Rfam assigns this 96-nucleotide RNA to the family "DUF3800-V RNA". Rfam classes the family as a small RNA.
RNA sequence: UGGAGCUGGUACUAAUAUACUAGCCUGUGCUUAAGUCCUCAGGAGUGGUACACUCGUUUUCAGCUUAGGAACACCACAGCUAGCACCACCGUUCCA
Numbered sequence: 001u002g003g004a005g006c007u008g009g010u011a012c013u014a015a016u017a018u019a020c021u022a023g024c025c026u027g028u029g030c031u032u033a034a035g036u037c038c039u040c041a042g043g044a045g046u047g048g049u050a051c052a053c054u055c056g057u058u059u060u061c062a063g064c065u066u067a068g069g070a071a072c073a074c075c076a077c078a079g080c081u082a083g084c085a086c087c088a089c090c091g092u093u094c095c096a
Stems, first nucleotide, its partner, number of pairs: 001096006009089002025079005030069007041057001043055004